[Rfam]
RNA sequence: CCGGUGGCAAGGUGGAUGCAAUGUGACCUCAACUCUUGGUCCUCUGAGGUCACAUUGUAUCCACCUUACCACUGG
Numbered sequence: 001c002c003g004g005u006g007g008c009a010a011g012g013u014g015g016a017u018g019c020a021a022u023g024u025g026a027c028c029u030c031a032a033c034u035c036u037u038g039g040u041c042c043u044c045u046g047a048g049g050u051c052a053c054a055u056u057g058u059a060u061c062c063a064c065c066u067u068a069c070c071a072c073u074g075g
Stems, first nucleotide, its partner, number of pairs: 001075007009067023032040003
The record is a 75-nucleotide RNA from Homo sapiens, which matches "mir-3165 microRNA precursor family" in Rfam. Lineage of the source: Eukaryota > Chordata > Tetrapoda > Catarrhini > Homo. Rfam 15.1 lists 20 matches to the family in 20 species.